[Rfam]
RNA: c-di-GMP-I-GGC riboswitch aptamer
Organism: Desulfopila sp. IMCC35006
RNA sequence: UGAGAUAAAGCCAAACUCGCUGAUAAACGAGUACGGAAAGCCACGGGUCUCAAUAGAUAGCCGAGCUGCCUCAC
Number, nucleotide and partner (000 for none) at each position: 001u000002g000003a071004g070005a000006u000007a000008a000009a000010g000011c036012c035013a000014a000015a000016c031017u030018c029019g028020c000021u026022g000023a000024u000025a000026a021027a000028c019029g018030a017031g016032u000033a000034c060035g012036g011037a000038a000039a067040g066041c065042c000043a000044c063045g062046g061047g058048u057049c056050u000051c000052a000053a000054u000055a000056g049057a048058u047059a000060g034061c046062c045063g044064a000065g041066c040067u039068g000069c000070c004071u003072c000073a000074c000